Description:
The record is a 79-nucleotide RNA sequence from Rhinolophus ferrumequinum, which matches "Small nucleolar RNA U2-19" in Rfam. Rfam 15.1 lists 1,147 matches to the family in 531 species. The family's consensus secondary structure is taken from published work. Its family is annotated with RNA processing and nucleolus in the Gene Ontology. Taxonomically the source falls in Rhinolophus (Eukaryota, Gnathostomata, Dipnotetrapodomorpha, Boreoeutheria). A search with the family's covariance model found it, with a score of 76 bits.
[Rfam]
RNA sequence: GAUCAAUGAUGAAACAGCCAAGUCUGAGCAUCAGAAGACCUUUUUGUCCACCUGAGGCAUAAUCUCUGUAGUUGUGAGA
Numbered sequence: 001g002a003u004c005a006a007u008g009a010u011g012a013a014a015c016a017g018c019c020a021a022g023u024c025u026g027a028g029c030a031u032c033a034g035a036a037g038a039c040c041u042u043u044u045u046g047u048c049c050a051c052c053u054g055a056g057g058c059a060u061a062a063u064c065u066c067u068g069u070a071g072u073u074g075u076g077a078g079a
Stems, first nucleotide, its partner, number of pairs: 028058002031055002037048003